[Rfam]
RNA sequence: GAGAGUUAGCGCGGCAGUUGCAGAAUAGACCAAAGCAAUUUGGAUCUAUCUCCGAGGAAAGUCCGGGCUCCCAAAAGACCAAACUUGCUGGGUAACCCCCAGUGCGCGUGAGCGUGAGGAUAGUGCCACAGAAACAUACCGCCGUAACAGUGAACAGUGAACAGUGAACAGGGGACAGUGAACAGUGGAAAUCCAGUGGGACAAACAUUGAUAACUGAUAACUGAUAACUGAUAACUGAAACCUGAAAAGGUAAGGGUGCAAAGGUGACGGUAAGAGCGCACCAGCAGUAUCGAGAGGUACUGGCUUGGUAAACCCCGGUGGGGAGCAAGGUCGGUGGGACAAGGUUGGUCUUUUCCCUACCCAGUGAUGGAGAACCGCUAGAGGUGACUGGUAACAGCCAUCCCAGAUAGAUAACUGCCCUUGGCAUUGCCCAAGAACAGAACCCGGCUUACGUCUAACUCUCCCAA
Numbered sequence: 001g002a003g004a005g006u007u008a009g010c011g012c013g014g015c016a017g018u019u020g021c022a023g024a025a026u027a028g029a030c031c032a033a034a035g036c037a038a039u040u041u042g043g044a045u046c047u048a049u050c051u052c053c054g055a056g057g058a059a060a061g062u063c064c065g066g067g068c069u070c071c072c073a074a075a076a077g078a079c080c081a082a083a084c085u086u087g088c089u090g091g092g093u094a095a096c097c098c099c100c101a102g103u104g105c106g107c108g109u110g111a112g113c114g115u116g117a118g119g120a121u122a123g124u125g126c127c128a129c130a131g132a133a134a135c136a137u138a139c140c141g142c143c144g145u146a147a148c149a150g151u152g153a154a155c156a157g158u159g160a161a162c163a164g165u166g167a168a169c170a171g172g173g174g175a176c177a178g179u180g181a182a183c184a185g186u187g188g189a190a191a192u193c194c195a196g197u198g199g200g201a202c203a204a205a206c207a208u209u210g211a212u213a214a215c216u217g218a219u220a221a222c223u224g225a226u227a228a229c230u231g232a233u234a235a236c237u238g239a240a241a242c243c244u245g246a247a248a249a250g251g252u253a254a255g256g257g258u259g260c261a262a263a264g265g266u267g268a269c270g271g272u273a274a275g276a277g278c279g280c281a282c283c284a285g286c287a288g289u290a291u292c293g294a295g296a297g298g299u300a301c302u303g304g305c306u307u308g309g310u311a312a313a314c315c316c317c318g319g320u321g322g323g324g325a326g327c328a329a330g331g332u333c334g335g336u337g338g339g340a341c342a343a344g345g346u347u348g349g350u351c352u353u354u355u356c357c358c359u360a361c362c363c364a365g366u367g368a369u370g371g372a373g374a375a376c377c378g379c380u381a382g383a384g385g386u387g388a389c390u391g392g393u394a395a396c397a398g399c400c401a402u403c404c405c406a407g408a409u410a411g412a413u414a415a416c417u418g419c420c421c422u423u424g425g426c427a428u429u430g431c432c433c434a435a436g437a438a439c440a441g442a443a444c445c446c447g448g449c450u451u452a453c454g455u456c457u458a459a460c461u462c463u464c465c466c467a468a
Stems, first nucleotide, its partner, number of pairs: 001464009011453001013420007021054001023052002025049005059451003063448005068326004077357001083320002086318002088102005103117001104115004118316002123314002125310003139256002141252003145248001148245002264283004269279002285305001286303007330377003341367002345363001348362003384403004389398003
A member of the RNA family "Bacterial RNase P class A" from [Limnothrix rosea] IAM M-220, 468 nucleotides long.
Rfam links the family to the GO terms tRNA processing, ribonuclease P activity and dimeric ribonuclease P complex.
By type it is a ribozyme.
A search with the family's covariance model found it, with a score of 222 bits.
About the family: Ribonuclease P (RNase P) is a ubiquitous endoribonuclease, found in archaea, bacteria and eukarya as well as chloroplasts and mitochondria.